[Rfam]
RNA sequence: AGCUCUGUGAUUAAAACUGCCUGAAGGCAAUAUACACUAUUCUGAUUAUAUAUGAGCAGAGCAUUAUUUACAAUGAGAGCU
Numbered sequence: 001a002g003c004u005c006u007g008u009g010a011u012u013a014a015a016a017c018u019g020c021c022u023g024a025a026g027g028c029a030a031u032a033u034a035c036a037c038u039a040u041u042c043u044g045a046u047u048a049u050a051u052a053u054g055a056g057c058a059g060a061g062c063a064u065u066a067u068u069u070a071c072a073a074u075g076a077g078a079g080c081u
Stems, first nucleotide, its partner, number of pairs: 001081005

This 81-nucleotide sequence from Apium graveolens belongs to the Rfam family "Small nucleolar RNA U54". The family has 21 seed sequences and 614 matches in Rfam 15.1. The literature on the family includes a 2003 paper in Nucleic Acids Res by Chen et al., "The high diversity of snoRNAs in plants: identification and comparative study of 120 snoRNA genes from Oryza sativa". Rfam's curators write: U54 is a C/D box small nucleolar RNA, which acts as a methylation guide for 18S ribosomal RNA in plants. The family's consensus secondary structure was predicted with PFOLD. Rfam classes the family as a C/D-box small nucleolar RNA. Rfam links the family to the GO terms RNA processing and nucleolus.